The family of this 103-nucleotide RNA sequence from Fontibacillus phaseoli is "azaaromatic riboswitch aptamer (yjdF RNA)".
[Rfam]
RNA sequence: AAUGCGGAACGAAAAAACACAUUCUGGUCGGUAGUCCAGAAGCAUGGCCCAGGCCAUGUCAGUAACCUUCCCCCUCGGGAUGUCCGUCGUUCCGCUGCUUAAC
Numbered sequence: 001a002a003u004g005c006g007g008a009a010c011g012a013a014a015a016a017a018c019a020c021a022u023u024c025u026g027g028u029c030g031g032u033a034g035u036c037c038a039g040a041a042g043c044a045u046g047g048c049c050c051a052g053g054c055c056a057u058g059u060c061a062g063u064a065a066c067c068u069u070c071c072c073c074c075u076c077g078g079g080a081u082g083u084c085c086g087u088c089g090u091u092c093c094g095c096u097g098c099u100u101a102a103c
Stems, first nucleotide, its partner, number of pairs: 004095008022041006042059006069080004

Lineage of the source: Bacteria > Bacillati > Bacilli > Caryophanales > Fontibacillus.
The family's consensus secondary structure is taken from published work.
A search with the family's covariance model found it, with a score of 95 bits.